Annotation:
A member of the RNA family "c-di-AMP riboswitch aptamer (ydaO/yuaA leader)" from Rothia nasimurium, 147 nucleotides long. This family represents a conserved RNA structure found upstream of the ydaO and yuaA genes in Bacillus subtilis and related genes in other bacteria.
RNA sequence: ACAAAACAAAAAUUAUCAGGCAGAAGCGGGGGACCCACCUUUCGGGCUCACCACCUAGGAGCCCUUGGGGUUAAGUUGCAGGCAACUGUGACCGAGUGACUUCAUACUCGAACCCGACAGCUCACCUCGUUCGGCAAUGGAGGAAAA
Numbered sequence: 001a002c003a004a005a006a007c008a009a010a011a012a013u014u015a016u017c018a019g020g021c022a023g024a025a026g027c028g029g030g031g032g033a034c035c036c037a038c039c040u041u042u043c044g045g046g047c048u049c050a051c052c053a054c055c056u057a058g059g060a061g062c063c064c065u066u067g068g069g070g071u072u073a074a075g076u077u078g079c080a081g082g083c084a085a086c087u088g089u090g091a092c093c094g095a096g097u098g099a100c101u102u103c104a105u106a107c108u109c110g111a112a113c114c115c116g117a118c119a120g121c122u123c124a125c126c127u128c129g130u131u132c133g134g135c136a137a138u139g140g141a142g143g144a145a146a147a
Base pairs, nucleotide, nucleotide: 007133013024014023026130027129028128029127030126031125036067037066068115069114070113076091077090078089079088094109095108096107097106
It scores 55 bits against the family's covariance model.